[Rfam]
A member of the RNA family "Glycine riboswitch aptamer" from Sphingobium cloacae, 103 nucleotides long.

RNA sequence: GGGCAUGAUGCGGGAGAGCAUGGCGGGCCUUUGAGGCCAGACGCCGUCGCCGAAGGAGCAACCGCCCCGGAAUCUCUCAGGCUUAAAGGACCGCAUCAUGGGC
Numbered sequence: 001g002g003g004c005a006u007g008a009u010g011c012g013g014g015a016g017a018g019c020a021u022g023g024c025g026g027g028c029c030u031u032u033g034a035g036g037c038c039a040g041a042c043g044c045c046g047u048c049g050c051c052g053a054a055g056g057a058g059c060a061a062c063c064g065c066c067c068c069g070g071a072a073u074c075u076c077u078c079a080g081g082c083u084u085a086a087a088g089g090a091c092c093g094c095a096u097c098a099u100g101g102g103c
Stems, first nucleotide, its partner, number of pairs: 006098008020047006049082003052078002056076003062070002